[Rfam]
RNA sequence: GGCAGUUCUCAGGUGAUGCAUCCUGAAAUCAGGUUACCUCCUCUCUGGAUACAGGGCACAUCACCCGAGAACCGCC
Numbered sequence: 001g002g003c004a005g006u007u008c009u010c011a012g013g014u015g016a017u018g019c020a021u022c023c024u025g026a027a028a029u030c031a032g033g034u035u036a037c038c039u040c041c042u043c044u045c046u047g048g049a050u051a052c053a054g055g056g057c058a059c060a061u062c063a064c065c066c067g068a069g070a071a072c073c074g075c076c
Base pairs, nucleotide, nucleotide: 002075003074005072006071007070008069009068010067012065013064014063015062016061017060021056022055023054025052027050029048030047031046032045033044

A member of the RNA family "mir-9223 microRNA precursor family" from Pipistrellus kuhlii, 76 nucleotides long. The base pairs follow the family's consensus structure, which was predicted with RNAalifold. Lineage of the source: Eukaryota > Eumetazoa > Chordata > Vespertilionidae > Pipistrellus. Its family is annotated with RISC complex and miRNA-mediated post-transcriptional gene silencing in the Gene Ontology.